[Rfam]
RNA sequence: GUGCCUGUGGGAUGAACUGGUCCCAACAUUUACACCCAUUUAUUCACUUUGUCAGCUGAUAGACACUCAUUUUUAGCUGAUCAUUAAGAAUGGAAAAUGG
Numbered sequence: 001g002u003g004c005c006u007g008u009g010g011g012a013u014g015a016a017c018u019g020g021u022c023c024c025a026a027c028a029u030u031u032a033c034a035c036c037c038a039u040u041u042a043u044u045c046a047c048u049u050u051g052u053c054a055g056c057u058g059a060u061a062g063a064c065a066c067u068c069a070u071u072u073u074u075a076g077c078u079g080a081u082c083a084u085u086a087a088g089a090a091u092g093g094a095a096a097a098u099g100g
Stems, first nucleotide, its partner, number of pairs: 036093005051081008
RNA: Small nucleolar RNA snoR99